[Rfam]
RNA: Actino-pnp RNA
RNA sequence: GCCGGUCCUCGGUAGUGGCUUCCGGGAGUCCCCCGGGCGAGAUCACCCAAGACGUACCCGAGAGCCUCGAUCGAAGACCGGC
Numbered sequence: 001g002c003c004g005g006u007c008c009u010c011g012g013u014a015g016u017g018g019c020u021u022c023c024g025g026g027a028g029u030c031c032c033c034c035g036g037g038c039g040a041g042a043u044c045a046c047c048c049a050a051g052a053c054g055u056a057c058c059c060g061a062g063a064g065c066c067u068c069g070a071u072c073g074a075a076g077a078c079c080g081g082c
Base pairs, nucleotide, nucleotide: 001082002081003080004079005078006077007076009074010073011072012071013070017066018065019064020063021062023060024059025058026057